[Rfam]
RNA sequence: GAGACACCCUUCUAAGGCAAGACUUGCUUCAGUGGGGUUUUGGUGCUCACUGGGUCUGUCCCCUGAGUGUGUCCCU
Numbered sequence: 001g002a003g004a005c006a007c008c009c010u011u012c013u014a015a016g017g018c019a020a021g022a023c024u025u026g027c028u029u030c031a032g033u034g035g036g037g038u039u040u041u042g043g044u045g046c047u048c049a050c051u052g053g054g055u056c057u058g059u060c061c062c063c064u065g066a067g068u069g070u071g072u073c074c075c076u
Base pairs, nucleotide, nucleotide: 001075003073004072005071006070007069009067010066011065016060017059018058019057021056022055023054029053030052031051032050033049034048035047036046037044038043
The family of this 76-nucleotide RNA from Myotis lucifugus is "mir-9229 microRNA precursor family". Pairs were carried over by alignment from the consensus structure, which was predicted with RNAalifold. Its family is annotated with RISC complex and miRNA-mediated post-transcriptional gene silencing in the Gene Ontology. The match comes from Rfam's covariance-model search (74 bits).